[Rfam]
RNA sequence: UCACUAGCCAGCAAAUCAGUUGCAAGACUGGAAGUGAAGUCUGAUUAA
Number, nucleotide and partner (000 for none) at each position: 001u036002c000003a000004c000005u000006a000007g000008c031009c030010a000011g029012c026013a000014a000015a045016u044017c043018a042019g041020u000021u000022g000023c000024a000025a000026g012027a000028c000029u011030g009031g008032a000033a000034g000035u000036g001037a000038a000039g000040u000041c019042u018043g017044a016045u015046u000047a000048a000
A member of the RNA family "Exoribonuclease-resistant RNA (xrRNA) plant-infecting virus (class 3)" from Polerovirus GPOV, 48 nucleotides long. The base pairs follow the family's consensus structure, which is taken from published work. The organism belongs to Polerovirus GPOV, within Viruses. The literature on the family includes a 2024 paper in bioRxiv [Preprint] by Gezelle et al., "The pseudoknot structure of a viral RNA reveals a conserved mechanism for programmed exoribonuclease resistance". Rfam classes the family as a cis-regulatory element. From the family's description: Exoribonuclease-resistant RNA (xrRNA) plant-infecting virus (class 3) is a ncRNA that was reported in Plant viruses. Rfam's curators put it in the seed alignment.